[Rfam]
Shown here is a 331-nucleotide part of an RNA from [Eubacterium] yurii, a member of the family "Bacterial large subunit ribosomal RNA". Lineage of the source: Bacteria > Bacillota > Peptoanaerobacter > [Eubacterium] yurii > [Eubacterium] yurii subsp. margaretiae.

Nucleotides: 331
Base pairs, nucleotide, nucleotide: 001331002330003329004328009326010325011324012323013322014321015320016319018317019316020315035059036058037057038056039055044049060075061074062073063072064071065070076080088310089309090308091307092306093305094304095302096301099113100112101111116151117150118149119148120147121146122145123144124141128137129136130135154297155296156295157294159227160226161225164224165223166220167219168218169217170216173215174214175213179209180208184204185203186202187201188200191196228246229245230244231243232242233241247251257284267283268282269281270280271279272278
Number, partner (000 for none) and nucleotide at each position: 001331c002330g003329a004328g005000a006000g007000a008000a009326c010325u011324g012323u013322u014321g015320u016319u017000a018317a019316g020315g021000a022000a023000c024000u025000c026000g027000g028000c029000a030000a031000a032000a033000u034000g035059a036058c037057c038056c039055c040000g041000u042000a043000a044049c045000u046000u047000a048000g049044g050000g051000a052000u053000a054000a055039g056038g057037g058036g059035u060075g061074c062073c063072u064071u065070a066000g067000a068000g069000a070065u071064a072063a073062g074061g075060c076080u077000u078000c079000a080076a081000g082000a083000a084000a085000a086000a087000g088310g089309c090308c091307c092306a093305a094304g095302c096301g097000a098000c099113u100112g101111u102000u103000u104000a105000c106000c107000a108000a109000a110000a111101a112100c113099a114000u115000a116151g117150g118149u119148c120147u121146c122145u123144g124141c125000g126000a127000a128137a129136c130135c131000g132000c133000a134000a135130g136129g137128u138000g139000a140000a141124g142000u143000a144123u145122a146121g147120g148119g149118g150117c151116u152000g153000a154297c155296g156295c157294c158000u159227g160226c161225c162000c163000g164224g165223u166220g167219c168218u169217g170216g171000a172000a173215g174214g175213u176000u177000a178000a179209g180208a181000g182000g183000a184204g185203a186202u187201g188200u189000c190000a191196g192000g193000c194000a195000a196191c197000g198000a199000a200188g201187c202186a203185u204184u205000g206000a207000a208180u209179u210000u211000a212000a213175g214174c215173c216170c217169c218168a219167g220166u221000a222000a223165a224164c225161g226160g227159c228246g229245g230244c231243c232242g233241u234000a235000a236000c237000u238000a239000u240000a241233a242232c243231g244230g245229u246228c247251c248000u249000a250000a251247g252000g253000u254000a255000g256000c257284g258000a259000a260000a261000u262000u263000c264000c265000u266000u267283g268282u269281c270280g271279g272278g273000u274000a275000a276000g277000u278272u279271c280270c281269g282268a283267c284257c285000c286000g287000c288000a289000c290000g291000a292000a293000a294157g295156g296155c297154g298000u299000a300000a301096c302095g303000a304094u305093u306092u307091g308090g309089g310088c311000a312000c313000u314000g315020u316019c317018u318000c319016a320015a321014c322013a323012a324011c325010a326009g327000a328004c329003u330002c331001g